[Rfam]
RNA sequence: UGUAACGGGAUAAGACUUAACCAAGAGGACAAUAGCAUGUAUAGACGCAACGCGGGGAUUUCGGGAUGUACACGGUUAGGAUCCUCUCGAG
Number, nucleotide and partner (000 for none) at each position: 001u012002g011003u010004a000005a000006c000007g000008g000009g000010a003011u002012a001013a000014g000015a000016c000017u000018u000019a000020a000021c000022c000023a000024a087025g086026a085027g084028g083029a082030c000031a000032a000033u000034a000035g000036c000037a000038u000039g000040u000041a000042u078043a077044g076045a000046c074047g073048c000049a000050a000051c000052g069053c068054g067055g000056g000057g000058a000059u000060u000061u000062c000063g000064g000065g000066a000067u054068g053069u052070a000071c000072a000073c047074g046075g000076u044077u043078a042079g000080g000081a000082u029083c028084c027085u026086c025087u024088c000089g000090a000091g000
Source information: The record is a 91-nucleotide RNA from Odontophorus gujanensis, which matches "Retrovirus direct repeat 1 (dr1)" in Rfam. Rfam 15.1 lists 106 matches to the family in 14 species. It scores 61 bits against the family's covariance model. Rfam links the family to the GO term viral genome replication. On this family, see Aschoff et al., J Virol 1999: "Point mutations in the avian sarcoma/leukosis virus 3' untranslated region result in a packaging defect". The source organism's lineage runs through Eukaryota, Eumetazoa, Aves, Odontophoridae and Odontophorus. The base pairs follow the family's consensus structure, which is taken from published work. Rfam's curators write: This family represents the direct repeat 1 (dr1) element commonly found in the 3' UTR of Avian sarcoma, Rous sarcoma and Avian leukosis viruses (Alpharetroviruses and Avian type C retroviruses). dr1 is required for efficient viral replication and is thought to be involved in genomic RNA packaging although this may not be its only role.